[Rfam]
A member of the RNA family "Eukaryotic small subunit ribosomal RNA" from Dothidotthia symphoricarpi, 543 nucleotides of a longer RNA. Taxonomically the source falls in Dothidotthia symphoricarpi (Eukaryota, Fungi, Dothideomycetes, Pleosporales).
RNA sequence: AAAGUUAUUACAGUUAAAAAGCUCGUAGUUGAAACUUGGGUCUGGCUGGCAGGUCCGCCUCACCGCGUGUACUUGUCCGGCCGGGCCUUUCCUUCUGGAGAACCUCAUGCCCUUCACUGGGCGUGCUGGGGAACUAGGACUUUUACUUUAAAAAAAUUAGAGUGUUUAAAGCAGGCCUUUGCUUGAAUACGUUAGCAUAGAAUAAUAGAAUAGGACGUGCGGUCCUAUUUUGUUGGUUUCUAGGACCGCCGUAAUGAUUAAUAGGGACAGUCGGGGGCAUUAGUAUUUAAUUAUUAGAGGUAAAAUUCUUGGAUUUAUUAAAGACUAACUACUGCGAAAGCAUUUGCCAAGGAUGUUUUCAUUAAUCAGUGAACGAAAGUUAGGGGAUCGAAGACAAUUAGAUACCGUCGUAGUCUUAACCGUAAACUAUGCCGACUAGGGAUCGGGCGAUGUUCUUUUUCUGACUCGCUCGGCACCUUACGAGAAAUCAAAGUUUUUGGGUUCUGGGGGGAGUAUAGUUGCAAGGCUAAAACUUAAAGAAAU
Numbered sequence: 001a002a003a004g005u006u007a008u009u010a011c012a013g014u015u016a017a018a019a020a021g022c023u024c025g026u027a028g029u030u031g032a033a034a035c036u037u038g039g040g041u042c043u044g045g046c047u048g049g050c051a052g053g054u055c056c057g058c059c060u061c062a063c064c065g066c067g068u069g070u071a072c073u074u075g076u077c078c079g080g081c082c083g084g085g086c087c088u089u090u091c092c093u094u095c096u097g098g099a100g101a102a103c104c105u106c107a108u109g110c111c112c113u114u115c116a117c118u119g120g121g122c123g124u125g126c127u128g129g130g131g132a133a134c135u136a137g138g139a140c141u142u143u144u145a146c147u148u149u150a151a152a153a154a155a156a157u158u159a160g161a162g163u164g165u166u167u168a169a170a171g172c173a174g175g176c177c178u179u180u181g182c183u184u185g186a187a188u189a190c191g192u193u194a195g196c197a198u199a200g201a202a203u204a205a206u207a208g209a210a211u212a213g214g215a216c217g218u219g220c221g222g223u224c225c226u227a228u229u230u231u232g233u234u235g236g237u238u239u240c241u242a243g244g245a246c247c248g249c250c251g252u253a254a255u256g257a258u259u260a261a262u263a264g265g266g267a268c269a270g271u272c273g274g275g276g277g278c279a280u281u282a283g284u285a286u287u288u289a290a291u292u293a294u295u296a297g298a299g300g301u302a303a304a305a306u307u308c309u310u311g312g313a314u315u316u317a318u319u320a321a322a323g324a325c326u327a328a329c330u331a332c333u334g335c336g337a338a339a340g341c342a343u344u345u346g347c348c349a350a351g352g353a354u355g356u357u358u359u360c361a362u363u364a365a366u367c368a369g370u371g372a373a374c375g376a377a378a379g380u381u382a383g384g385g386g387a388u389c390g391a392a393g394a395c396a397a398u399u400a401g402a403u404a405c406c407g408u409c410g411u412a413g414u415c416u417u418a419a420c421c422g423u424a425a426a427c428u429a430u431g432c433c434g435a436c437u438a439g440g441g442a443u444c445g446g447g448c449g450a451u452g453u454u455c456u457u458u459u460u461c462u463g464a465c466u467c468g469c470u471c472g473g474c475a476c477c478u479u480a481c482g483a484g485a486a487a488u489c490a491a492a493g494u495u496u497u498u499g500g501g502u503u504c505u506g507g508g509g510g511g512a513g514u515a516u517a518g519u520u521g522c523a524a525g526g527c528u529a530a531a532a533c534u535u536a537a538a539g540a541a542a543u
Base pairs, nucleotide, nucleotide: 011506012505013504019503021374023372024371028366029365030364264360265359266358267357268355269354271352272351276348277347278346279345282326283325286322287321288320289319290318291317293315297308298307299306334341335340379420380419381418382417383416384415389413393409394408395407431502432501433500434495435494436493438478439477440476443473444472445471446470447469448468449467450466452465453464454463482489483488508535509534510533517528518527519526520525